[Rfam]
RNA: TD-2 RNA
Organism: Treponema denticola
RNA sequence: GGUUUGUUUACAAACCGCAUACAAUAAUACGAUGUUUUGUGCAACGCACAAAACUCGAUAGAUAAACAGUGAGGUUGAAUUUCUGCCGAACUGUUUAUCAUAU
Numbered sequence: 001g002g003u004u005u006g007u008u009u010a011c012a013a014a015c016c017g018c019a020u021a022c023a024a025u026a027a028u029a030c031g032a033u034g035u036u037u038u039g040u041g042c043a044a045c046g047c048a049c050a051a052a053a054c055u056c057g058a059u060a061g062a063u064a065a066a067c068a069g070u071g072a073g074g075u076u077g078a079a080u081u082u083c084u085g086c087c088g089a090a091c092u093g094u095u096u097a098u099c100a101u102a103u
Stems, first nucleotide, its partner, number of pairs: 001016006030057003034054008061099010073087002
Dot-bracket structure: ((((((....)))))).............(((.((((((((.....)))))))))))...((((((((((..((...........))..))))))))))....